[Rfam]
RNA sequence: AAACCUCUUCAGGGCAGGGUGAAAUUCCCUACUGGCGGUAUACUCCGCGAACCUUCGGGCCGAGCCUGGUGAAACUCCGGCAGCAACAGUUAAAGUCUGGAUGGAAGAAGAUCUUU
Numbered sequence: 001a002a003a004c005c006u007c008u009u010c011a012g013g014g015c016a017g018g019g020u021g022a023a024a025u026u027c028c029c030u031a032c033u034g035g036c037g038g039u040a041u042a043c044u045c046c047g048c049g050a051a052c053c054u055u056c057g058g059g060c061c062g063a064g065c066c067u068g069g070u071g072a073a074a075c076u077c078c079g080g081c082a083g084c085a086a087c088a089g090u091u092a093a094a095g096u097c098u099g100g101a102u103g104g105a106a107g108a109a110g111a112u113c114u115u116u
Stems, first nucleotide, its partner, number of pairs: 003114001006111005017029003031096002033085002035048004043083002052059002064081003068078002087099003
Dot-bracket structure: ..(..(((((......(((.......))).[[((((((....[[))))...((....))....(((.((.......)))))]])).(((.....]]))).......)))))..)..
Shown here is a 116-nucleotide sequence from Erysipelotrichaceae bacterium RD49, a member of the family "FMN riboswitch aptamer (RFN element)". The family's consensus secondary structure is taken from published work. It scores 93 bits against the family's covariance model. Taxonomically the source falls in Erysipelotrichaceae (Bacteria, Bacillati, Erysipelotrichia, Erysipelotrichales). Gene Ontology term of the family: FMN binding.